[Rfam]
RNA sequence: AUGGCGGAACCGAAAAGCCAUUAAUAGAGUAGGAA
Numbered sequence: 001a002u003g004g005c006g007g008a009a010c011c012g013a014a015a016a017g018c019c020a021u022u023a024a025u026a027g028a029g030u031a032g033g034a035a
Stems, first nucleotide, its partner, number of pairs: 002020004010033002
RNA: DUF805b RNA